RNA sequence: CGAACCCCACUAGGAAAAGUUUAGCCAACUACCUAUAGCGAGUCUUGGGAGGCGCGGGGUGAUCCGCGUCUCUAAGCGUAGACAGCAAACUAGCAGGCUGGAAGCGAAAGCUGAAUCGAUUGAGCCCCGAAAUCACCCCAAUGGGAAGGCCGAUGCAGUGGACCGUGCAGAAGGCAACAUCUGACUGGUCGAAAUGGCGAGACCAGUCAGGCUUCCCCGGGGUCAUAGAGAC
Numbered sequence: 001c002g003a004a005c006c007c008c009a010c011u012a013g014g015a016a017a018a019g020u021u022u023a024g025c026c027a028a029c030u031a032c033c034u035a036u037a038g039c040g041a042g043u044c045u046u047g048g049g050a051g052g053c054g055c056g057g058g059g060u061g062a063u064c065c066g067c068g069u070c071u072c073u074a075a076g077c078g079u080a081g082a083c084a085g086c087a088a089a090c091u092a093g094c095a096g097g098c099u100g101g102a103a104g105c106g107a108a109a110g111c112u113g114a115a116u117c118g119a120u121u122g123a124g125c126c127c128c129g130a131a132a133u134c135a136c137c138c139c140a141a142u143g144g145g146a147a148g149g150c151c152g153a154u155g156c157a158g159u160g161g162a163c164c165g166u167g168c169a170g171a172a173g174g175c176a177a178c179a180u181c182u183g184a185c186u187g188g189u190c191g192a193a194a195u196g197g198c199g200a201g202a203c204c205a206g207u208c209a210g211g212c213u214u215c216c217c218c219g220g221g222g223u224c225a226u227a228g229a230g231a232c
Base pairs, nucleotide, nucleotide: 011035012034013033014032018030019029020028021027022200024198025197038086039085042083043082044081045080046078047077048073049072050071051070052069053068054067055066056065057064058063122224124223125222126221127220128219129218143217144216145215146214147213148212149175150174151173154169155168156167157166180211181210182209183208184207185206186205187204188203189202190201
Rfam assigns this 232-nucleotide RNA sequence from Sporotomaculum syntrophicum to the family "Group II catalytic intron D1-D4-6". The source organism's lineage runs through Bacteria, Bacillati, Clostridia, Desulfallaceae and Sporotomaculum. Group II introns are found in rRNA, tRNA and mRNA of organelles in fungi, plants and protists, and also in mRNA in bacteria. The match comes from Rfam's covariance-model search (179 bits).